[Rfam]
The record is a 96-nucleotide RNA from Erythrobacter sp. THAF29, which matches "Glycine riboswitch aptamer" in Rfam. The pairing is the family consensus, mapped onto this sequence. Taxonomically the source falls in Erythrobacter (Bacteria, Pseudomonadota, Sphingomonadales, Erythrobacteraceae). It scores 67 bits against the family's covariance model. For this family Rfam cites "In Vivo Behavior of the Tandem Glycine Riboswitch in Bacillus subtilis" (Babina et al., MBio, 2017). From the family's description: This family represents the bacterial glycine riboswitch.

RNA sequence: GCGUCUCUCGCGGGAGAGACCGGGCCUCGAAAGAGGGCUGGCGCCGAAGGAGCAACCGCCCCGGAAACUCUCAGGCAAACGGACCGCGAUUGGAUU
Numbered sequence: 001g002c003g004u005c006u007c008u009c010g011c012g013g014g015a016g017a018g019a020c021c022g023g024g025c026c027u028c029g030a031a032a033g034a035g036g037g038c039u040g041g042c043g044c045c046g047a048a049g050g051a052g053c054a055a056c057c058g059c060c061c062c063g064g065a066a067a068c069u070c071u072c073a074g075g076c077a078a079a080c081g082g083a084c085c086g087c088g089a090u091u092g093g094a095u096u
Base pairs, nucleotide, nucleotide: 008089009088010087011086012085013084020041021040022039023038043076044075045074046072047071050070051069052068056064057063